[Rfam]
Nucleotides: 339
Base pairs, nucleotide, nucleotide: 001034002033003032004031005030039050040049041048062277063276064275066273067272071195072194073193075190076189081185082184083183085181196219197218202213204211223316225315226314227313228312229311280302281301282300283299286298287297288296323337324336325335326334328333
Number, partner (000 for none) and nucleotide at each position: 001034a002033u003032g004031a005030u006000a007000c008000a009000a010000c011000u012000a013000u014000a015000u016000a017000a018000c019000a020000a021000u022000a023000g024000a025000a026000c027000u028000u029000a030005g031004u032003c033002g034001u035000a036000u037000a038000c039050a040049g041048u042000a043000g044000a045000a046000a047000u048041a049040c050039u051000g052000u053000a054000u055000u056000u057000a058000a059000a060000g061000a062277g063276c064275c065000c066273u067272g068000a069000a070000u071195u072194g073193c074000u075190g076189g077000a078000a079000u080000a081185c082184c083183c084000u085181g086000a087000g088000a089000g090000c091000c092000c093000u094000a095000u096000g097000a098000a099000c100000c101000a102000c103000a104000a105000c106000g107000u108000a109000a110000g111000a112000u113000u114000g115000a116000g117000a118000a119000a120000u121000c122000u123000a124000g125000g126000c127000g128000u129000g130000a131000a132000g133000g134000u135000g136000g137000c138000a139000u140000g141000a142000c143000c144000g145000u146000a147000a148000a149000a150000a151000u152000c153000a154000u155000a156000g157000g158000g159000a160000u161000u162000u163000g164000a165000g166000g167000u168000g169000a170000g171000u172000c173000a174000g175000a176000c177000u178000c179000u180000a181085c182000u183083g184082g185081g186000a187000a188000a189076c190075c191000a192000u193073g194072c195071a196219g197218c198000c199000a200000a201000g202213c203000c204211u205000u206000g207000a208000a209000g210000a211204g212000a213202g214000g215000a216000a217000g218197g219196u220000u221000c222000a223316a224000c225315g226314a227313c228312u229311a230000g231000u232000g233000c234000a235000a236000a237000g238000g239000c240000a241000c242000g243000u244000a245000g246000g247000g248000g249000u250000a251000a252000u253000a254000u255000u256000u257000u258000u259000a260000a261000u262000u263000a264000c265000u266000u267000c268000g269000a270000a271000g272067c273066g274000g275064g276063g277062c278000a279000g280302c281301c282300u283299a284000a285000a286298c287297c288296g289000a290000u291000a292000a293000g294000g295000a296288c297287g298286g299283u300282a301281g302280g303000u304000g305000a306000a307000g308000a309000u310000a311229u312228a313227g314226u315225c316223u317000a318000u319000a320000c321000c322000c323337a324336c325335u326334a327000u328333a329000u330000a331000a332000a333328u334326u335325a336324g337323u338000g339000u